Shown here is a 102-nucleotide RNA sequence from Parechovirus ahumpari, a member of the family "Human parechovirus 1 (HPeV1) cis regulatory element (CRE)". Rfam's curators put it in the seed alignment. It is annotated as a cis-regulatory element. Rfam's curators write: This family represents a Parechovirus cis regulatory element which is located in the 5'-terminal 112 nucleotides of the genome of human parechovirus 1 (HPeV1). The family consists of two stem-loop structures (SL-A and SL-B) together with a pseudoknot. Disruption of any of these elements impairs both viral replication and growth. Rfam links the family to the GO term viral genome replication.
[Rfam]
RNA sequence: UCCUAGAGAGCUUGGCCGUCGGGCCUUAUACCCGACUUGCUGAGUUUCUCUAGGAGAGUCCCUUUCCCAGCCCUGAGGCGGCUGGUCAAUAAAAGCCUCAAA
Numbered sequence: 001u002c003c004u005a006g007a008g009a010g011c012u013u014g015g016c017c018g019u020c021g022g023g024c025c026u027u028a029u030a031c032c033c034g035a036c037u038u039g040c041u042g043a044g045u046u047u048c049u050c051u052a053g054g055a056g057a058g059u060c061c062c063u064u065u066c067c068c069a070g071c072c073c074u075g076a077g078g079c080g081g082c083u084g085g086u087c088a089a090u091a092a093a094a095g096c097c098u099c100a101a102a
Stems, first nucleotide, its partner, number of pairs: 001055007008047009018036006067085006075099005